[Rfam]
RNA sequence: AGUGACCGGCCGGGCAUCCAUGUGCCCGGCCCGCAAGUGGAGGCUCCGCGCUCCCACCUGAUCGGCCUUGCGGCCGGCAGGUCUUCGGUCAGGCUGCGCCCCGCGAUGAGCCGCGGUGGUGCUCCCGGUCUGUGGAGCCCCGCCUGCGUGCUGCCCGGGGCGUUUUUU
Numbered sequence: 001a002g003u004g005a006c007c008g009g010c011c012g013g014g015c016a017u018c019c020a021u022g023u024g025c026c027c028g029g030c031c032c033g034c035a036a037g038u039g040g041a042g043g044c045u046c047c048g049c050g051c052u053c054c055c056a057c058c059u060g061a062u063c064g065g066c067c068u069u070g071c072g073g074c075c076g077g078c079a080g081g082u083c084u085u086c087g088g089u090c091a092g093g094c095u096g097c098g099c100c101c102c103g104c105g106a107u108g109a110g111c112c113g114c115g116g117u118g119g120u121g122c123u124c125c126c127g128g129u130c131u132g133u134g135g136a137g138c139c140c141c142g143c144c145u146g147c148g149u150g151c152u153g154c155c156c157g158g159g160g161c162g163u164u165u166u167u168u
Stems, first nucleotide, its partner, number of pairs: 004090006012027002028083004034060002037057004041052002062077006098161006104153002112148003115144005121138005
Dot-bracket structure: ...((((((..((............))((((..((.((((((........)).)))).)).((((((....))))))..)))).)))))).......((((((((......((((((((.(((((........))))).))))).)))...))..)))))).......
The record is a 168-nucleotide sequence from Streptomyces marincola, which matches "Streptomyces RNA 1601" in Rfam. The source organism's lineage runs through Bacteria, Actinomycetota, Actinomycetes, Kitasatosporales and Streptomyces. The match comes from Rfam's covariance-model search (102 bits).